Rfam assigns this 559-nucleotide part of an RNA from Mycoplasmopsis fermentans to the family "Bacterial small subunit ribosomal RNA". Rfam's curators put it in the seed alignment. Its Rfam clan is "SSU clan". A reference for the family is Yusupov et al. (2001), "Crystal structure of the ribosome at 5.5 A resolution", Science. The source organism's lineage runs through Bacteria, Bacillati, Mycoplasmoidales, Mycoplasmopsis and Mycoplasmopsis fermentans.
[Rfam]
RNA sequence: UUUUUCGAGAGUUUGAUCCUGGCUCAGGAUGAACGCUGGCUGUGUGCCUAAUACAUGCAUGUCGAGCGAAGGUAGCAAUACCUUAGCGGCGAAUGGGUGAGUAACACGUGCUCAACGUACCCUUCAGUUUGGCAUAGCGACUGGAAACAGUCGAUAAUUUCAAAUACUCGUAGUUUUCGCAUGAAGAUUACGGAAAAGAAGCGUUUGCUUCGCUGGAGGAGCGGGGUGCGUAACAUUAGCUAGUUGGUGAGGUAACGGCCCACCAAGGCGAUGAUGUUUAGCGGGGUUGAGAGACUGAACCGCCACACUGGGACUGAGAUACGGCCCAGACUCCUACGGGAGGCAGCAGUAGGGAAUAUUCCACAAUGGGCGAAAGCCUGAUGGAGCGACACAGCGUGAAGGAUGAAGGUCCUAUGGAUUGUAAACUUCUGUGGUAAGGGAAGAAAAGACAGAAUAGGAAAUGAUUUUGUUUUGACGGUACCUUAUUAGAAAGCAACGGCUAACUAUGUGCCAGCAGCCGCGGUAAUACAUAGGUUGCAAGCGUUAUCCGGAAUUAUUG
Numbered sequence: 001u002u003u004u005u006c007g008a009g010a011g012u013u014u015g016a017u018c019c020u021g022g023c024u025c026a027g028g029a030u031g032a033a034c035g036c037u038g039g040c041u042g043u044g045u046g047c048c049u050a051a052u053a054c055a056u057g058c059a060u061g062u063c064g065a066g067c068g069a070a071g072g073u074a075g076c077a078a079u080a081c082c083u084u085a086g087c088g089g090c091g092a093a094u095g096g097g098u099g100a101g102u103a104a105c106a107c108g109u110g111c112u113c114a115a116c117g118u119a120c121c122c123u124u125c126a127g128u129u130u131g132g133c134a135u136a137g138c139g140a141c142u143g144g145a146a147a148c149a150g151u152c153g154a155u156a157a158u159u160u161c162a163a164a165u166a167c168u169c170g171u172a173g174u175u176u177u178c179g180c181a182u183g184a185a186g187a188u189u190a191c192g193g194a195a196a197a198g199a200a201g202c203g204u205u206u207g208c209u210u211c212g213c214u215g216g217a218g219g220a221g222c223g224g225g226g227u228g229c230g231u232a233a234c235a236u237u238a239g240c241u242a243g244u245u246g247g248u249g250a251g252g253u254a255a256c257g258g259c260c261c262a263c264c265a266a267g268g269c270g271a272u273g274a275u276g277u278u279u280a281g282c283g284g285g286g287u288u289g290a291g292a293g294a295c296u297g298a299a300c301c302g303c304c305a306c307a308c309u310g311g312g313a314c315u316g317a318g319a320u321a322c323g324g325c326c327c328a329g330a331c332u333c334c335u336a337c338g339g340g341a342g343g344c345a346g347c348a349g350u351a352g353g354g355a356a357u358a359u360u361c362c363a364c365a366a367u368g369g370g371c372g373a374a375a376g377c378c379u380g381a382u383g384g385a386g387c388g389a390c391a392c393a394g395c396g397u398g399a400a401g402g403a404u405g406a407a408g409g410u411c412c413u414a415u416g417g418a419u420u421g422u423a424a425a426c427u428u429c430u431g432u433g434g435u436a437a438g439g440g441a442a443g444a445a446a447a448g449a450c451a452g453a454a455u456a457g458g459a460a461a462u463g464a465u466u467u468u469g470u471u472u473u474g475a476c477g478g479u480a481c482c483u484u485a486u487u488a489g490a491a492a493g494c495a496a497c498g499g500c501u502a503a504c505u506a507u508g509u510g511c512c513a514g515c516a517g518c519c520g521c522g523g524u525a526a527u528a529c530a531u532a533g534g535u536u537g538c539a540a541g542c543g544u545u546a547u548c549c550g551g552a553a554u555u556a557u558u559g
Stems, first nucleotide, its partner, number of pairs: 009025005027549004032545006039395006045388002047353001052351003056348003061090003066087002069084006097306003106231008116223002121219007129163004138153006169192010198211003232278003239269003244266006251259001281303004285296004308329005331342004359385001361384003367380005398429004408420004434486006443476001449470006493538005504533005514521002